[Rfam]
Shown here is a 71-nucleotide RNA sequence from Eumeta japonica, a member of the family "mir-71 microRNA precursor family".
RNA sequence: ACUGGGUGAAAGACAUGGGUAAAGAGAUAUCUUGUAAGCACCAAUCUCACUACCUUGUCUUUCAUGCGGAU
Numbered sequence: 001a002c003u004g005g006g007u008g009a010a011a012g013a014c015a016u017g018g019g020u021a022a023a024g025a026g027a028u029a030u031c032u033u034g035u036a037a038g039c040a041c042c043a044a045u046c047u048c049a050c051u052a053c054c055u056u057g058u059c060u061u062u063c064a065u066g067c068g069g070a071u
Stems, first nucleotide, its partner, number of pairs: 008063008017055003021051001024048005
Dot-bracket structure: .......((((((((.(((.(..(((((...............)))))..).)))))))))))........
Lineage of the source: Eukaryota > Opisthokonta > Metazoa > Bilateria > Eumeta.
It scores 53 bits against the family's covariance model.
A reference for the family is Li et al. (2009), "Direct sequencing and expression analysis of a large number of miRNAs in Aedes aegypti and a multi-species survey of novel mosquito miRNAs", BMC Genomics.